RNA: mir-492 microRNA precursor family
Organism: Theropithecus gelada
RNA sequence: CCCAUCGAGGACCUGCGGGACAAGAUUCUUGGUGCCACCAUUGAGAACUCCAGGAUCGUCCUACAGAUCGAUACA
Numbered sequence: 001c002c003c004a005u006c007g008a009g010g011a012c013c014u015g016c017g018g019g020a021c022a023a024g025a026u027u028c029u030u031g032g033u034g035c036c037a038c039c040a041u042u043g044a045g046a047a048c049u050c051c052a053g054g055a056u057c058g059u060c061c062u063a064c065a066g067a068u069c070g071a072u073a074c075a
Base pairs, nucleotide, nucleotide: 010069011068013066014065015064017062018061019060020059021058023056027055028054029053030052031051032050034048